[Rfam]
RNA: SAM-I/IV (S-adenosyl methionine) riboswitch aptamer
RNA sequence: GUAGAGUAUUCAGAAUUGUUCGAAACAAUACCAACCGAGUGGAGUCACCACGGUGGUAAAAUAAUACGGGUGUCUGCCAAAAUAAACGUCAAUC
Numbered sequence: 001g002u003a004g005a006g007u008a009u010u011c012a013g014a015a016u017u018g019u020u021c022g023a024a025a026c027a028a029u030a031c032c033a034a035c036c037g038a039g040u041g042g043a044g045u046c047a048c049c050a051c052g053g054u055g056g057u058a059a060a061a062u063a064a065u066a067c068g069g070g071u072g073u074c075u076g077c078c079a080a081a082a083u084a085a086a087c088g089u090c091a092a093u094c
Stems, first nucleotide, its partner, number of pairs: 006067005015029006030057003035053003039048002042090002069078003
Dot-bracket structure: .....(((((....((((((...))))))(((..(((.((.[[...))..))).))).....))))).(((....)))..........]]....